Rfam assigns this 58-nucleotide sequence from Mycobacterium sp. KMS to the family "F6 TB sRNA". The family has 16 seed sequences and 310 matches in Rfam 15.1. The family's consensus secondary structure is taken from published work. NCBI's taxonomy places the organism under Bacteria, Actinomycetota, Mycobacteriales, Mycobacteriaceae, Mycobacterium. For this family Rfam cites "Identification of small RNAs in Mycobacterium tuberculosis" (Arnvig and Young, Mol Microbiol, 2009).
[Rfam]
RNA sequence: CUGAUAGCUCCGUGUUGCCGUCUGACCCCCCGACCCGACGGCAACACGGGGCCACUUU
Number, nucleotide and partner (000 for none) at each position: 001c000002u000003g056004a000005u054006a000007g052008c051009u050010c049011c048012g047013u046014g045015u044016u043017g042018c041019c040020g039021u038022c037023u000024g000025a000026c000027c000028c000029c000030c000031c000032g000033a000034c000035c000036c000037g022038a021039c020040g019041g018042c017043a016044a015045c014046a013047c012048g011049g010050g009051g008052c007053c000054a005055c000056u003057u000058u000